[Rfam]
RNA: Alphaproteobacterial ar14
Organism: Rhodobacterales bacterium
RNA sequence: UUUCGCAGUCUGACGUCAUCCUCCUCCCAGUCUUCAGACUGCGCUUCUGCGGGUUUUCCGCAGAACUUCAAAAGCGCCUGCCGGUACCUCCUCCCACCGGCAGGCGUUUUUU
Numbered sequence: 001u002u003u004c005g006c007a008g009u010c011u012g013a014c015g016u017c018a019u020c021c022u023c024c025u026c027c028c029a030g031u032c033u034u035c036a037g038a039c040u041g042c043g044c045u046u047c048u049g050c051g052g053g054u055u056u057u058c059c060g061c062a063g064a065a066c067u068u069c070a071a072a073a074g075c076g077c078c079u080g081c082c083g084g085u086a087c088c089u090c091c092u093c094c095c096a097c098c099g100g101c102a103g104g105c106g107u108u109u110u111u112u
Stems, first nucleotide, its partner, number of pairs: 007040003011036003015032001017030001045065009074107011